[Rfam]
This 234-nucleotide sequence from Oceanicola sp. 22II-s10i belongs to the Rfam family "permuted transfer-messenger RNA". The match comes from Rfam's covariance-model search (142 bits). Lineage of the source: Bacteria > Alphaproteobacteria > Rhodobacterales > Roseobacteraceae > Oceanicola.

RNA sequence: GGACAUAAACGCGCUCGUAAUAAGCGGAUCGGACCCGGGGGCGGUACCCGGCGGCUCCACCAACACACCACCGGCGGCAUCCUUCGUUUGGGGAGGUCUUCGGGACAGUGGGGCCGAAAUAGGAUCGACGAACGUCUAAAGGGGAUUGCCUUGUCCCGGUGAGGUACCACCGUUAUCGGUCCGAACAGUACAAUUGCAAACGACAAUCGUGCUCCGGUUGCUCUGGCCGCGUAA
Numbered sequence: 001g002g003a004c005a006u007a008a009a010c011g012c013g014c015u016c017g018u019a020a021u022a023a024g025c026g027g028a029u030c031g032g033a034c035c036c037g038g039g040g041g042c043g044g045u046a047c048c049c050g051g052c053g054g055c056u057c058c059a060c061c062a063a064c065a066c067a068c069c070a071c072c073g074g075c076g077g078c079a080u081c082c083u084u085c086g087u088u089u090g091g092g093g094a095g096g097u098c099u100u101c102g103g104g105a106c107a108g109u110g111g112g113g114c115c116g117a118a119a120u121a122g123g124a125u126c127g128a129c130g131a132a133c134g135u136c137u138a139a140a141g142g143g144g145a146u147u148g149c150c151u152u153g154u155c156c157c158g159g160u161g162a163g164g165u166a167c168c169a170c171c172g173u174u175a176u177c178g179g180u181c182c183g184a185a186c187a188g189u190a191c192a193a194u195u196g197c198a199a200a201c202g203a204c205a206a207u208c209g210u211g212c213u214c215c216g217g218u219u220g221c222u223c224u225g226g227c228c229g230c231g232u233a234a
Stems, first nucleotide, its partner, number of pairs: 001156005014144003025134002029131003035051005052116009157172004